[Rfam]
RNA: eL15-Euryarchaeota ribosomal protein leader
RNA sequence: CCCGUCCACACGGGACGAUAUGUGGCCCACGUGGUUCGUGGAACGGCUGCCACGAGGGCCGAAUCGCAAG
Numbered sequence: 001c002c003c004g005u006c007c008a009c010a011c012g013g014g015a016c017g018a019u020a021u022g023u024g025g026c027c028c029a030c031g032u033g034g035u036u037c038g039u040g041g042a043a044c045g046g047c048u049g050c051c052a053c054g055a056g057g058g059c060c061g062a063a064u065c066g067c068a069a070g
Stems, first nucleotide, its partner, number of pairs: 001014005016066003024060005